Fluoride riboswitch aptamer (crcB RNA motif): a 63-nucleotide RNA sequence from Paraburkholderia saeva. Pairs were carried over by alignment from the consensus structure, which is taken from published work. A search with the family's covariance model found it, with a score of 56 bits.

RNA sequence: AAUUGAAGUGGAGAUGGCAUUCCUCCAUAACCGCCCGCAGGGGCUAAUGAUGCCUACAGGCCU
Numbered sequence: 001a002a003u004u005g006a007a008g009u010g011g012a013g014a015u016g017g018c019a020u021u022c023c024u025c026c027a028u029a030a031c032c033g034c035c036c037g038c039a040g041g042g043g044c045u046a047a048u049g050a051u052g053c054c055u056a057c058a059g060g061c062c063u
Base pairs, nucleotide, nucleotide: 010026011025012024013023016054017053018052019051020050021049033044034043035042036041